RNA sequence: ACACUUGUUUUUCUUCAGAUCGUAUAAAUCUUUCGCCUUUUACUAAAGAUUUCCGUGGAGAAGAACAUUAUGAGUUUCAAAUAAUUUUUUGAUGCCCUGCUUACUGUGGGGUU
Numbered sequence: 001a002c003a004c005u006u007g008u009u010u011u012u013c014u015u016c017a018g019a020u021c022g023u024a025u026a027a028a029u030c031u032u033u034c035g036c037c038u039u040u041u042a043c044u045a046a047a048g049a050u051u052u053c054c055g056u057g058g059a060g061a062a063g064a065a066c067a068u069u070a071u072g073a074g075u076u077u078c079a080a081a082u083a084a085u086u087u088u089u090u091g092a093u094g095c096c097c098u099g100c101u102u103a104c105u106g107u108g109g110g111g112u113u
Stems, first nucleotide, its partner, number of pairs: 003075004007066011026052008092113001094112006
Rfam assigns this 113-nucleotide RNA sequence from Perca fluviatilis to the family "U5 spliceosomal RNA". Rfam classes the family as a spliceosomal small nuclear RNA. It scores 94 bits against the family's covariance model.